Shown here is a 300-nucleotide sequence from Ruminiclostridium cellobioparum, a member of the family "T-box leader". A search with the family's covariance model found it, with a score of 94 bits. The family's consensus secondary structure is taken from published work. NCBI's taxonomy places the organism under Bacteria, Bacillati, Bacillota, Clostridia, Ruminiclostridium cellobioparum subsp. termitidis. Uncharged tRNA acts as the effector for transcription antitermination of genes in the T-box leader family. T-boxes are found upstream of many aminoacyl-tRNA synthetase genes and some amino acid biosynthetic genes usually in Gram-positive bacteria. The anticodon of a specific tRNA base pairs to a specifier sequence within the T-box motif, and the NCCA acceptor tail of the tRNA base pairs to a conserved bulge in the T-box antiterminator hairpin.
RNA sequence: AAAAAGGCGAUGAGCAAGAGGAGUAAGCAGUUGAAUUUCCACAGAGAGGAACCGGUCGGGUUACAGUGCCCCAGGGUGAGAGGUUCCGGAAAACAGCCUGCCGAAGGUAGCUUGGGAGCUCUGCACCGAAAGAAGUACCUGCCAUAUAGUCCACUAUAUGAUAUCCGGUUUCAAAGUAGGCUGCAGCGGAUUUUCGGACGUUAUCCGAUUGAGAGAUUCACACCGGUUUUUAGGCAUAUUUAGUCAUAUAGAACUUGUGAAAUUUUGGUGGUACCGCGAAACAGCAGCUUCGUCCAAAUA
Number, nucleotide and partner (000 for none) at each position: 001a000002a000003a000004a000005a000006g000007g119008c118009g000010a000011u000012g000013a000014g000015c114016a113017a112018g111019a000020g000021g000022a000023g000024u000025a000026a000027g101028c100029a099030g098031u000032u000033g000034a000035a000036u000037u090038u089039c088040c000041a000042c000043a000044g000045a000046g000047a000048g087049g086050a085051a084052c083053c082054g000055g000056u000057c000058g000059g000060g000061u000062u000063a000064c000065a000066g000067u000068g000069c000070c000071c000072c000073a000074g000075g000076g000077u000078g000079a000080g000081a000082g053083g052084u051085u050086c049087c048088g039089g038090a037091a000092a000093a000094c000095a000096g000097c000098c030099u029100g028101c027102c000103g000104a000105a000106g000107g000108u000109a000110g000111c018112u017113u016114g015115g000116g000117a000118g008119c007120u000121c000122u185123g184124c183125a182126c000127c180128g000129a000130a000131a000132g000133a000134a000135g000136u000137a000138c000139c000140u000141g000142c000143c000144a000145u000146a000147u000148a000149g000150u000151c000152c000153a000154c000155u000156a000157u000158a000159u000160g000161a000162u000163a000164u000165c000166c000167g000168g000169u000170u000171u000172c000173a000174a000175a000176g000177u000178a000179g000180g127181c000182u125183g124184c123185a122186g000187c200188g199189g000190a000191u000192u000193u000194u000195c000196g000197g000198a000199c188200g187201u000202u000203a000204u000205c000206c000207g000208a000209u000210u000211g000212a000213g000214a000215g000216a000217u259218u000219c000220a000221c257222a256223c000224c000225g000226g000227u000228u000229u000230u000231u000232a000233g000234g000235c000236a000237u000238a000239u000240u000241u000242a000243g000244u000245c000246a000247u000248a000249u000250a000251g000252a000253a000254c000255u000256u222257g221258u000259g217260a000261a000262a000263u000264u000265u297266u296267g295268g294269u000270g000271g000272u000273a000274c000275c000276g293277c292278g291279a290280a289281a000282c000283a000284g000285c000286a000287g000288c000289u280290u279291c278292g277293u276294c268295c267296a266297a265298a000299u000300a000